Shown here is an 83-nucleotide RNA sequence from Merluccius polli, a member of the family "Small nucleolar RNA SNORD35". The source organism's lineage runs through Eukaryota, Bilateria, Deuterostomia, Gadiformes and Merluccius. The family is grouped with related families in Rfam's "SNORD35 clan". Rfam's curators write: U35 is a C/D box snoRNA located in intron 6 of ribosomal protein L13A and intron 3 of ribosomal protein S11 in humans and at homologous positions in mouse and chicken ribosomal protein genes. U35 guides the methylation of 2'-O-ribose sites in 28S rRNA. It is annotated as a C/D-box small nucleolar RNA.

[Rfam]
RNA sequence: UGCAAGUGAUGUUUUCUCACGAUGGUCUUCCUAGCCCAUGUGGUGGUGACGACAUUGCCUAUUGGCAUAGCUGAUGCAGCCCC
Numbered sequence: 001u002g003c004a005a006g007u008g009a010u011g012u013u014u015u016c017u018c019a020c021g022a023u024g025g026u027c028u029u030c031c032u033a034g035c036c037c038a039u040g041u042g043g044u045g046g047u048g049a050c051g052a053c054a055u056u057g058c059c060u061a062u063u064g065g066c067a068u069a070g071c072u073g074a075u076g077c078a079g080c081c082c083c
Stems, first nucleotide, its partner, number of pairs: 001078004